[Rfam]
Nucleotides: 184
Stems, first nucleotide, its partner, number of pairs: 002182009012171004017167003037149006057130003061126004066121001068120001072119003076115003084107002089103005
Number, partner (000 for none) and nucleotide at each position: 001000a002182g003181a004180g005179u006178c007177c008176u009175g010174a011000a012171g013170u014169g015168u016000a017167c018166g019165u020000u021000u022000a023000c024000u025000u026000c027000c028000a029000u030000a031000a032000u033000a034000a035000u036000u037149u038148g039147a040146g041145c042144c043000a044000a045000c046000a047000c048000u049000u050000u051000u052000a053000c054000a055000a056000c057130g058129g059128g060000a061126g062125c063124u064123u065000g066121a067000u068120u069000c070000u071000u072119u073118c074117c075000a076115u077114c078113c079000a080000g081000a082000g083000u084107a085106c086000a087000u088000g089103c090102c091101u092100c093099g094000g095000u096000a097000g098000c099093u100092g101091a102090g103089g104000a105000c106085g107084u108000a109000c110000g111000a112000a113078g114077g115076a116000c117074g118073g119072a120068a121066u122000a123064g124063g125062g126061c127000a128059c129058c130057c131000a132000c133000c134000u135000g136000c137000c138000a139000a140000u141000g142000c143000a144042g145041g146040u147039u148038c149037a150000a151000c152000a153000a154000u155000u156000a157000u158000g159000g160000a161000a162000a163000g164000g165019a166018c167017g168015g169014c170013a171012c172000a173000g174010u175009u176008g177007g178006g179005g180004c181003u182002c183000u184000u
The record is a 184-nucleotide RNA sequence from Guptibacillus hwajinpoensis, which matches "6S / SsrS RNA" in Rfam.
On this family, see Elkina et al., RNA Biol 2017: "6S RNA in Rhodobacter sphaeroides: 6S RNA and pRNA transcript levels peak in late exponential phase and gene deletion causes a high salt stress phenotype".
The family's consensus secondary structure is taken from published work.
Taxonomically the source falls in Guptibacillus (Bacteria, Bacillati, Bacillota, Caryophanales).
By type it is a non-coding RNA gene.